[Rfam]
Shown here is a 279-nucleotide sequence from Aureobasidium melanogenum, a member of the family "Fungal signal recognition particle RNA". The organism belongs to Aureobasidium melanogenum, within Eukaryota. Rfam classes the family as a non-coding RNA gene. Clan: SRP clan. Its family is annotated with signal recognition particle, endoplasmic reticulum targeting, signal recognition particle, plasma membrane targeting and SRP-dependent cotranslational protein targeting to membrane, signal sequence recognition in the Gene Ontology.

RNA sequence: UAGCUGUAAUGGCUCAACGGAAAGAAACGGCUUCAAUCUUUCCUACCACCCCUGCUGUUGGCAACAACCCAACCAUCGGUGCCCGGUUCGAAUCUCGUGGUGGCCACCCACUCGCACAGGUAACUUGCGAUUUGCUGCGCGUGGCCUUGAGACUGCUUGGACACCGCUUCAGCCGAGCAAUCGGGCAGAGCGACUGAGCCCAUGGGAUGGCGAGUCCGGACUACAUUGAUGUUGUUGGUGGGGUGUUGGGAUGGAGUUAUGGUGUUGUGACUUUCUUUU
Numbered sequence: 001u002a003g004c005u006g007u008a009a010u011g012g013c014u015c016a017a018c019g020g021a022a023a024g025a026a027a028c029g030g031c032u033u034c035a036a037u038c039u040u041u042c043c044u045a046c047c048a049c050c051c052c053u054g055c056u057g058u059u060g061g062c063a064a065c066a067a068c069c070c071a072a073c074c075a076u077c078g079g080u081g082c083c084c085g086g087u088u089c090g091a092a093u094c095u096c097g098u099g100g101u102g103g104c105c106a107c108c109c110a111c112u113c114g115c116a117c118a119g120g121u122a123a124c125u126u127g128c129g130a131u132u133u134g135c136u137g138c139g140c141g142u143g144g145c146c147u148u149g150a151g152a153c154u155g156c157u158u159g160g161a162c163a164c165c166g167c168u169u170c171a172g173c174c175g176a177g178c179a180a181u182c183g184g185g186c187a188g189a190g191c192g193a194c195u196g197a198g199c200c201c202a203u204g205g206g207a208u209g210g211c212g213a214g215u216c217c218g219g220a221c222u223a224c225a226u227u228g229a230u231g232u233u234g235u236u237g238g239u240g241g242g243g244u245g246u247u248g249g250g251a252u253g254g255a256g257u258u259a260u261g262g263u264g265u266u267g268u269g270a271c272u273u274u275c276u277u278u279u
Base pairs, nucleotide, nucleotide: 002014003013004012019276020275021274022273023272024271028267029266030265031264034261035260036258038256041251042250043249044248045247047245048244049243050242051241052240056066057065058064059063070234071233072232074231075230076229077228078227079226080225081224083219084218085217086216088213089212090211092208093207094206095205096204097203098202099201100200102146104144105143108137110132112130113129114128115127116126118125119124147151155199156198157197158196159195160194165192166191167190168189169188174183175182176181